About this RNA: Rfam assigns this 83-nucleotide RNA from Junco hyemalis to the family "Small nucleolar RNA U2-19". Rfam links the family to the GO terms nucleolus and RNA processing. A reference for the family is Tycowski et al. (2004), "Guide RNAs with 5' Caps and Novel Box C/D snoRNA-like Domains for Modification of snRNAs in Metazoa", Curr Biol. The organism belongs to Junco, within Eukaryota. Rfam classes the family as a C/D-box small nucleolar RNA. Rfam 15.1 lists 1,147 matches to the family in 531 species. The match comes from Rfam's covariance-model search (67 bits).
RNA sequence: GGUCCGUGAUGAGAAAUAGCCAAAUCUGACCACCAGAAGAUGUUUUAUCUUCUAGGUGUCAUGAUUUGUAUGCAGUUCUGAGA
Dot-bracket structure: ..............................((((...((((.....))))....)))).........................